[Rfam]
RNA sequence: UGACGGGGGCCCGCACAAGCGGUGGAGCGCGUGGUUUAAUUCGAUGCUAAGCGAAGAACCUUACCAGGGCUUGACAUGCAGGCUGUAAGCUCACCCGAAAGGGUGAGUGCCAAAUAGGAGGUUUCUCCUAUUUGGAGUCUGCACAGGUGGUGCAUGGCUGUCGUCAGCUCGUGUCGUGAGAUGUUGGGUUAAGUCCCGCAACGAGCGCAACCCCUGCCCUUAGUUGCCAGCGGGUAAAGCCGGGCACUCUAAGGGGACUGCCGGCGAAGAGCCGGAGGAAGGUGGGGAUGACGUCAAGUCAGUAUGCCCCUUAUGCCCUGGGCUACACACGCGCUACAAUGGGUGGUACAGAGGGGAGCGAAGCCGCGAGGCGGAGCGAAUCCCUAAAGCCACCCCCAGUUCAGAUCGCAGGCUGCAACUCGCCUGCGUGAAGGCGGAAUCGCUAGUAACCGCAGAUCAGCCACGCUGCGGUGAAUACGUUCUCGGGCCUUGUACACACCGCCCGUCACACCACGAGAGUCCGCAACACCCGAAGUCAGGCGAAGAGCCUGCCGAAGGUGGGGCGGAUGAUUGGGGUGAAGUCGUAACAAGG
Numbered sequence: 001u002g003a004c005g006g007g008g009g010c011c012c013g014c015a016c017a018a019g020c021g022g023u024g025g026a027g028c029g030c031g032u033g034g035u036u037u038a039a040u041u042c043g044a045u046g047c048u049a050a051g052c053g054a055a056g057a058a059c060c061u062u063a064c065c066a067g068g069g070c071u072u073g074a075c076a077u078g079c080a081g082g083c084u085g086u087a088a089g090c091u092c093a094c095c096c097g098a099a100a101g102g103g104u105g106a107g108u109g110c111c112a113a114a115u116a117g118g119a120g121g122u123u124u125c126u127c128c129u130a131u132u133u134g135g136a137g138u139c140u141g142c143a144c145a146g147g148u149g150g151u152g153c154a155u156g157g158c159u160g161u162c163g164u165c166a167g168c169u170c171g172u173g174u175c176g177u178g179a180g181a182u183g184u185u186g187g188g189u190u191a192a193g194u195c196c197c198g199c200a201a202c203g204a205g206c207g208c209a210a211c212c213c214c215u216g217c218c219c220u221u222a223g224u225u226g227c228c229a230g231c232g233g234g235u236a237a238a239g240c241c242g243g244g245c246a247c248u249c250u251a252a253g254g255g256g257a258c259u260g261c262c263g264g265c266g267a268a269g270a271g272c273c274g275g276a277g278g279a280a281g282g283u284g285g286g287g288a289u290g291a292c293g294u295c296a297a298g299u300c301a302g303u304a305u306g307c308c309c310c311u312u313a314u315g316c317c318c319u320g321g322g323c324u325a326c327a328c329a330c331g332c333g334c335u336a337c338a339a340u341g342g343g344u345g346g347u348a349c350a351g352a353g354g355g356g357a358g359c360g361a362a363g364c365c366g367c368g369a370g371g372c373g374g375a376g377c378g379a380a381u382c383c384c385u386a387a388a389g390c391c392a393c394c395c396c397c398a399g400u401u402c403a404g405a406u407c408g409c410a411g412g413c414u415g416c417a418a419c420u421c422g423c424c425u426g427c428g429u430g431a432a433g434g435c436g437g438a439a440u441c442g443c444u445a446g447u448a449a450c451c452g453c454a455g456a457u458c459a460g461c462c463a464c465g466c467u468g469c470g471g472u473g474a475a476u477a478c479g480u481u482c483u484c485g486g487g488c489c490u491u492g493u494a495c496a497c498a499c500c501g502c503c504c505g506u507c508a509c510a511c512c513a514c515g516a517g518a519g520u521c522c523g524c525a526a527c528a529c530c531c532g533a534a535g536u537c538a539g540g541c542g543a544a545g546a547g548c549c550u551g552c553c554g555a556a557g558g559u560g561g562g563g564c565g566g567a568u569g570a571u572u573g574g575g576g577u578g579a580a581g582u583c584g585u586a587a588c589a590a591g592g
Stems, first nucleotide, its partner, number of pairs: 001496002003493003007490007015480002019443005024337001026335008034326002040055004064321007077143002080140005090107007110135011146310002149308004155304002157299003160295001162293002167206006173182003185198004212287004217255007227244002231242003258278002261275005341395007353384003358377002363372003402433001407428007449472007499591001501588001504584002509578004514573003519568006527560004535553001537551005

The family of this 592-nucleotide part of an RNA from Dictyoglomus turgidum is "Bacterial small subunit ribosomal RNA".